mir-190 microRNA precursor family: a 73-nucleotide RNA from Diatraea saccharalis. Gene Ontology terms of the family: RISC complex and miRNA-mediated post-transcriptional gene silencing. Rfam 15.1 lists 1,667 matches to the family in 854 species. A search with the family's covariance model found it, with a score of 63 bits.
RNA sequence: GUGCCUCUGAGAUAUGUUUGAUAUUCUUGGUUGUUGUUCUAUCACCCAGGAAUCAAACAUAUUACACAGAGGU
Numbered sequence: 001g002u003g004c005c006u007c008u009g010a011g012a013u014a015u016g017u018u019u020g021a022u023a024u025u026c027u028u029g030g031u032u033g034u035u036g037u038u039c040u041a042u043c044a045c046c047c048a049g050g051a052a053u054c055a056a057a058c059a060u061a062u063u064a065c066a067c068a069g070a071g072g073u
Stems, first nucleotide, its partner, number of pairs: 005071005011063012024050002029047002032044002